[Rfam]
RNA sequence: UCCGUUAAACUCAGGCUACCUCAUAGCUUGCUUGCACCGUAUUGUUCUUGUUUUUCGGUUAGUUAAACAUCGUACUUCAUAUUUGAACGUUCUGCCGGAAUGCAUUAUCAAUAGAGGUAAAGUCGCAACCCCAAAUCGUAAAGGAAACCGUAGCACGUCGUAUGCAAGAACGUGCCACG
Numbered sequence: 001u002c003c004g005u006u007a008a009a010c011u012c013a014g015g016c017u018a019c020c021u022c023a024u025a026g027c028u029u030g031c032u033u034g035c036a037c038c039g040u041a042u043u044g045u046u047c048u049u050g051u052u053u054u055u056c057g058g059u060u061a062g063u064u065a066a067a068c069a070u071c072g073u074a075c076u077u078c079a080u081a082u083u084u085g086a087a088c089g090u091u092c093u094g095c096c097g098g099a100a101u102g103c104a105u106u107a108u109c110a111a112u113a114g115a116g117g118u119a120a121a122g123u124c125g126c127a128a129c130c131c132c133a134a135a136u137c138g139u140a141a142a143g144g145a146a147a148c149c150g151u152a153g154c155a156c157g158u159c160g161u162a163u164g165c166a167a168g169a170a171c172g173u174g175c176c177a178c179g
Base pairs, nucleotide, nucleotide: 001015002014027122028121030118031117032116033115036112041108042107049104050103051102053100054099055098056097057096058095059094074090075089076087077086078085079084149179150178151177153175154174155173156172157171158170159168161166
The record is a 179-nucleotide sequence from Shigella sonnei, which matches "Chromosome-encoded Shigella sRNA B" in Rfam.
The match comes from Rfam's covariance-model search (121 bits).
The source organism's lineage runs through Bacteria, Pseudomonadota, Gammaproteobacteria, Enterobacteriaceae and Shigella sonnei.